The family of this 142-nucleotide RNA sequence from Paenibacillus validus is "TPP riboswitch aptamer (THI element)".
[Rfam]
RNA sequence: AAUAGCCACUAGGGGAGCCUCAAGAUGCGGGGCUGAGAUAAAGAAGCUUUCUUUGACCCUUGGAACCUGACUCGGCGGCCCGCGCCAUUUCGUGCGGACGUCACUGGAUGAUGCCAGCGUAGGGAAGUGGACGAAUGCAUGA
Numbered sequence: 001a002a003u004a005g006c007c008a009c010u011a012g013g014g015g016a017g018c019c020u021c022a023a024g025a026u027g028c029g030g031g032g033c034u035g036a037g038a039u040a041a042a043g044a045a046g047c048u049u050u051c052u053u054u055g056a057c058c059c060u061u062g063g064a065a066c067c068u069g070a071c072u073c074g075g076c077g078g079c080c081c082g083c084g085c086c087a088u089u090u091c092g093u094g095c096g097g098a099c100g101u102c103a104c105u106g107g108a109u110g111a112u113g114c115c116a117g118c119g120u121a122g123g124g125a126a127g128u129g130g131a132c133g134a135a136u137g138c139a140u141g142a
Base pairs, nucleotide, nucleotide: 006130007129008128009127010126011060012059013058014057016054017033018032019031020030021029041053042052043051044050066123067122068121069120072117074115075114076113077112
Taxonomically the source falls in Paenibacillus (Bacteria, Bacillati, Caryophanales, Paenibacillaceae).